[Rfam]
The family of this 73-nucleotide RNA sequence from Rhodnius prolixus is "mir-34 microRNA precursor family". Its Rfam clan is "mir-34 clan". NCBI's taxonomy places the organism under Eukaryota, Panarthropoda, Altocrustacea, Dicondylia, Rhodnius. About the family: Human mir-34a was discovered computationally and later experimentally verified. The mature sequence is excised from the 5' arm of the hairpin. On this family, see Lim et al., Science 2003: "Vertebrate microRNA genes". Its family is annotated with RISC complex and miRNA-mediated post-transcriptional gene silencing in the Gene Ontology.
RNA sequence: AACGGAUUGGCAGUGUGGUUAGCUGGUUGUGUAAAAUUUGGCGUCACGCCACUAUCUUCACUGCCACUCCGAC
Numbered sequence: 001a002a003c004g005g006a007u008u009g010g011c012a013g014u015g016u017g018g019u020u021a022g023c024u025g026g027u028u029g030u031g032u033a034a035a036a037u038u039u040g041g042c043g044u045c046a047c048g049c050c051a052c053u054a055u056c057u058u059c060a061c062u063g064c065c066a067c068u069c070c071g072a073c
Stems, first nucleotide, its partner, number of pairs: 003071004009065002012062004017057002020054003024051004029047003